[Rfam]
RNA sequence: UGCACAAAGCACAUGAUGACAACACACAGACACUGACUCUGUGUGAAGAACAUUCAAUCCAACACUGAGCUUUGUGUC
Numbered sequence: 001u002g003c004a005c006a007a008a009g010c011a012c013a014u015g016a017u018g019a020c021a022a023c024a025c026a027c028a029g030a031c032a033c034u035g036a037c038u039c040u041g042u043g044u045g046a047a048g049a050a051c052a053u054u055c056a057a058u059c060c061a062a063c064a065c066u067g068a069g070c071u072u073u074g075u076g077u078c
Base pairs, nucleotide, nucleotide: 002077003076004075005074006073007072008071009070010069
Dot-bracket structure: .(((((((((..........................................................))))))))).
Shown here is a 78-nucleotide sequence from Smithornis capensis, a member of the family "Small nucleolar RNA SNORD69". Lineage of the source: Eukaryota > Bilateria > Neoaves > Telluraves > Smithornis. The base pairs follow the family's consensus structure. Rfam describes the family as follows. snoRNA HBII-210 belongs to the C/D family of snoRNAs. It is the human orthologue of the mouse MBII-210 and is predicted to guide the 2'O-ribose methylation of large 28S rRNA on residue G4464. The family has 11 seed sequences and 524 matches in Rfam 15.1.